[Rfam]
A member of the RNA family "Selenocysteine insertion sequence 1" from Sinocyclocheilus anshuiensis, 66 nucleotides long. The match comes from Rfam's covariance-model search (38 bits). From the family's description: The incorporation of selenocysteine into a protein sequence is directed by an in-frame UGA codon (usually a stop codon) within the coding region of the mRNA. Selenoprotein mRNAs contain a conserved secondary structure in the 3' UTR that is required for the distinction of UGA stop from UGA selenocysteine. Rfam classes the family as a cis-regulatory element. The base pairs follow the family's consensus structure, which is taken from published work. NCBI's taxonomy places the organism under Eukaryota, Eumetazoa, Bilateria, Cypriniformes, Sinocyclocheilus.
RNA sequence: UGUGGACUUUAUGAAAGCAGGUGCGGAAACUAUGCACUAGUGGUGCCUGUUUGAUGUUAGGCCACA
Numbered sequence: 001u002g003u004g005g006a007c008u009u010u011a012u013g014a015a016a017g018c019a020g021g022u023g024c025g026g027a028a029a030c031u032a033u034g035c036a037c038u039a040g041u042g043g044u045g046c047c048u049g050u051u052u053g054a055u056g057u058u059a060g061g062c063c064a065c066a
Stems, first nucleotide, its partner, number of pairs: 001066005016051009030040003